[Rfam]
RNA: Nuclear RNase P
Organism: Sparassis crispa
RNA sequence: ACAGCACGAAAGCCGCGAGGCUCUCACCGUACAGGAUGACUCUUCGAGCGUCCACAUUCGUGAGCGGGCUAAGGUCUGAGCAUACUUUCUUGUCUCCCCGAUCGACUCUAGCUGGGUCCAGUUCUAAAGAGCUGCGUGACGCACCAGCAAUGCAGCUGCGCCCUCCGCCGAUUCGAGAUGUACGCUAAUUCCUCAUCGGCGCCAUCUCGGGAUGGUCCCAACGAAUUUGCAGUGGACGAACCCUGCGAAGGAGGGAGAGCCUUUACGUCGCUGUCGCAGCUUUGGGACAUGUCACGGAGAUCGGGCGGGCAAGCGGUCGUGGUCGUCCUCUCUUUCCUCACCUCUUGGUGCCCCGCGCUGGGGCGUGCGAAACGCAGCAGCGGCGAGGGAUGCGUGACACGCUCCUUGCGCCCAGUUUCCGAGGCGAGUGAGGAGCAUGCGAUGGCCGCCGACGCGUCCGUCCUUCAGCGCACUUCGCGGCUCACGUUUUCGGGGCUUUCGAGCCUCUGUGAAACUCGAUUCAGACUACUCUCGUGCUGU
Numbered sequence: 001a002c003a004g005c006a007c008g009a010a011a012g013c014c015g016c017g018a019g020g021c022u023c024u025c026a027c028c029g030u031a032c033a034g035g036a037u038g039a040c041u042c043u044u045c046g047a048g049c050g051u052c053c054a055c056a057u058u059c060g061u062g063a064g065c066g067g068g069c070u071a072a073g074g075u076c077u078g079a080g081c082a083u084a085c086u087u088u089c090u091u092g093u094c095u096c097c098c099c100g101a102u103c104g105a106c107u108c109u110a111g112c113u114g115g116g117u118c119c120a121g122u123u124c125u126a127a128a129g130a131g132c133u134g135c136g137u138g139a140c141g142c143a144c145c146a147g148c149a150a151u152g153c154a155g156c157u158g159c160g161c162c163c164u165c166c167g168c169c170g171a172u173u174c175g176a177g178a179u180g181u182a183c184g185c186u187a188a189u190u191c192c193u194c195a196u197c198g199g200c201g202c203c204a205u206c207u208c209g210g211g212a213u214g215g216u217c218c219c220a221a222c223g224a225a226u227u228u229g230c231a232g233u234g235g236a237c238g239a240a241c242c243c244u245g246c247g248a249a250g251g252a253g254g255g256a257g258a259g260c261c262u263u264u265a266c267g268u269c270g271c272u273g274u275c276g277c278a279g280c281u282u283u284g285g286g287a288c289a290u291g292u293c294a295c296g297g298a299g300a301u302c303g304g305g306c307g308g309g310c311a312a313g314c315g316g317u318c319g320u321g322g323u324c325g326u327c328c329u330c331u332c333u334u335u336c337c338u339c340a341c342c343u344c345u346u347g348g349u350g351c352c353c354c355g356c357g358c359u360g361g362g363g364c365g366u367g368c369g370a371a372a373c374g375c376a377g378c379a380g381c382g383g384c385g386a387g388g389g390a391u392g393c394g395u396g397a398c399a400c401g402c403u404c405c406u407u408g409c410g411c412c413c414a415g416u417u418u419c420c421g422a423g424g425c426g427a428g429u430g431a432g433g434a435g436c437a438u439g440c441g442a443u444g445g446c447c448g449c450c451g452a453c454g455c456g457u458c459c460g461u462c463c464u465u466c467a468g469c470g471c472a473c474u475u476c477g478c479g480g481c482u483c484a485c486g487u488u489u490u491c492g493g494g495g496c497u498u499u500c501g502a503g504c505c506u507c508u509g510u511g512a513a514a515c516u517c518g519a520u521u522c523a524g525a526c527u528a529c530u531c532u533c534g535u536g537c538u539g540u
Base pairs, nucleotide, nucleotide: 001540002539003538004537007534008533009532012481013480014479015478016477017476018475020065021064022063023062034053035052036051037050038049076524077523078522079521080520094299095298096297097296104118105117106116107115108114119134120133121132122131123130124129136295137294138293139292140291141290154281155280156279157278158277159276160275482512483511484510485509486508